[Rfam]
RNA sequence: AAUGGCAAAUGACGAUUGCUAAAUUCUUAUCCUACACACUGAAUAUUUUUAUGUGUUGACUACCCAACUCCGCUUAUUAUCUGAUGCCAUU
Numbered sequence: 001a002a003u004g005g006c007a008a009a010u011g012a013c014g015a016u017u018g019c020u021a022a023a024u025u026c027u028u029a030u031c032c033u034a035c036a037c038a039c040u041g042a043a044u045a046u047u048u049u050u051a052u053g054u055g056u057u058g059a060c061u062a063c064c065c066a067a068c069u070c071c072g073c074u075u076a077u078u079a080u081c082u083g084a085u086g087c088c089a090u091u
Base pairs, nucleotide, nucleotide: 003089004088005087006086007085
This 91-nucleotide sequence from Coffea canephora belongs to the Rfam family "Small nucleolar RNA R16". The match comes from Rfam's covariance-model search (86 bits). Rfam classes the family as a C/D-box small nucleolar RNA. The literature on the family includes a 2002 paper in Mol Cell Biol by Galardi et al., "Purified box C/D snoRNPs are able to reproduce site-specific 2'-O-methylation of target RNA in vitro". The organism belongs to Coffea, within Eukaryota.